[Rfam]
RNA sequence: CCCUAGCCCCGAUGGGAACGGCAUCCUUUUUCUUUUCCGUUAACUUCGGCUUCGCUCAGGCAACGGAAAAGAAAAAGAUAUAGUGGACAGCGGGAUUAAGC
Numbered sequence: 001c002c003c004u005a006g007c008c009c010c011g012a013u014g015g016g017a018a019c020g021g022c023a024u025c026c027u028u029u030u031u032c033u034u035u036u037c038c039g040u041u042a043a044c045u046u047c048g049g050c051u052u053c054g055c056u057c058a059g060g061c062a063a064c065g066g067a068a069a070a071g072a073a074a075a076a077g078a079u080a081u082a083g084u085g086g087a088c089a090g091c092g093g094g095a096u097u098a099a100g101c
Stems, first nucleotide, its partner, number of pairs: 009093003013089002018084002023079003029074013